[Rfam]
RNA sequence: UGGUCAUUACCAAGGCUGCUAGGAUGCUGUUCCUGGUGAGCUGUGGACAUGACCGUAAAACAAGUCCAUCAGACUCUGCAGUUGCCACCUGUGGCACUAAGUCUGCUGGGAAUAAAG
Numbered sequence: 001u002g003g004u005c006a007u008u009a010c011c012a013a014g015g016c017u018g019c020u021a022g023g024a025u026g027c028u029g030u031u032c033c034u035g036g037u038g039a040g041c042u043g044u045g046g047a048c049a050u051g052a053c054c055g056u057a058a059a060a061c062a063a064g065u066c067c068a069u070c071a072g073a074c075u076c077u078g079c080a081g082u083u084g085c086c087a088c089c090u091g092u093g094g095c096a097c098u099a100a101g102u103c104u105g106c107u108g109g110g111a112a113u114a115a116a117g
Base pairs, nucleotide, nucleotide: 003053004052005051006050007049010046011045012044026041027040028039065110066109067108068107072103073102074101075100083096084095085094
This 117-nucleotide sequence from Halcyon senegalensis belongs to the Rfam family "Small nucleolar RNA SNORA32". About the family: ACA32 is a member of the H/ACA class of snoRNA that guide the sites of modification of uridines to pseudouridines. Gene Ontology terms of the family: nucleolus and RNA processing. Rfam 15.1 lists 615 matches to the family in 234 species.